The record is a 139-nucleotide RNA from Sorghum bicolor, which matches "Small nucleolar RNA Z247" in Rfam. Rfam links the family to the GO terms RNA processing and nucleolus.
RNA sequence: AAACUCGAAGAUGAGGAGAUGGUGUCUUACAUCCUCACCGGGCUCGACCACGAGUACAACCCCCUGGUGACCGCGGUCACCGCACGGGUUGAGCCGAUCACUCUUGGCGAACUUCACUCGCAGCUUGUCAGCUUCGAGC
Numbered sequence: 001a002a003a004c005u006c007g008a009a010g011a012u013g014a015g016g017a018g019a020u021g022g023u024g025u026c027u028u029a030c031a032u033c034c035u036c037a038c039c040g041g042g043c044u045c046g047a048c049c050a051c052g053a054g055u056a057c058a059a060c061c062c063c064c065u066g067g068u069g070a071c072c073g074c075g076g077u078c079a080c081c082g083c084a085c086g087g088g089u090u091g092a093g094c095c096g097a098u099c100a101c102u103c104u105u106g107g108c109g110a111a112c113u114u115c116a117c118u119c120g121c122a123g124c125u126u127g128u129c130a131g132c133u134u135c136g137a138g139c
Base pairs, nucleotide, nucleotide: 004138005137006136007135008134088108089107090106091105092104093103
Source information:
The family has 8 seed sequences and 7,071 matches in Rfam 15.1.